The family of this 147-nucleotide sequence from Reinekea marinisedimentorum is "Molybdenum/Tungsten riboswitch aptamer (Moco RNA motif)".
RNA sequence: UCUAUCAAUAAAACACCGAGUAAUUCGGAUCUACGUCGGGCUUAGAGCGGCCCAGAUAUGAACGAAUUGCCUCGCAUAGACGCGACAGGGUCUGAAUGGAAACGGUCAGGCCUCCCGUAUUUGGAAAGGUGAACAAUGUUACAAGAC
Numbered sequence: 001u002c003u004a005u006c007a008a009u010a011a012a013a014c015a016c017c018g019a020g021u022a023a024u025u026c027g028g029a030u031c032u033a034c035g036u037c038g039g040g041c042u043u044a045g046a047g048c049g050g051c052c053c054a055g056a057u058a059u060g061a062a063c064g065a066a067u068u069g070c071c072u073c074g075c076a077u078a079g080a081c082g083c084g085a086c087a088g089g090g091u092c093u094g095a096a097u098g099g100a101a102a103c104g105g106u107c108a109g110g111c112c113u114c115c116c117g118u119a120u121u122u123g124g125a126a127a128g129g130u131g132a133a134c135a136a137u138g139u140u141a142c143a144a145g146a147c
Base pairs, nucleotide, nucleotide: 003141004140006138014131015130016129017128020070021069022068023067024066025065026064027063030061031060035057036056037055072085073084074083075082088113089112090111091110092109093108094107095106097104098103114124115123

NCBI's taxonomy places the organism under Bacteria, Pseudomonadati, Pseudomonadota, Oceanospirillales, Reinekea. The family's consensus secondary structure is taken from published work. A search with the family's covariance model found it, with a score of 78 bits.